[Rfam]
RNA sequence: GGUCAAGAGUGCUAGCGAGAAGCCCCGGCUGGCUAGUCGGCAACCCCCGUACCGCGGUGGGGUGCUCCGGGUGAGGACCUGGCCCACCUGCGCAAACGCAGGCGGCAAGCGCGGGUC
Numbered sequence: 001g002g003u004c005a006a007g008a009g010u011g012c013u014a015g016c017g018a019g020a021a022g023c024c025c026c027g028g029c030u031g032g033c034u035a036g037u038c039g040g041c042a043a044c045c046c047c048c049g050u051a052c053c054g055c056g057g058u059g060g061g062g063u064g065c066u067c068c069g070g071g072u073g074a075g076g077a078c079c080u081g082g083c084c085c086a087c088c089u090g091c092g093c094a095a096a097c098g099c100a101g102g103c104g105g106c107a108a109g110c111g112c113g114g115g116u117c
Stems, first nucleotide, its partner, number of pairs: 001079004009038001011037006021030002039066003044062003048057001082106003087102006
RNA: SAM (S-adenosyl methionine) riboswitch aptamer
Organism: Segniliparus rugosus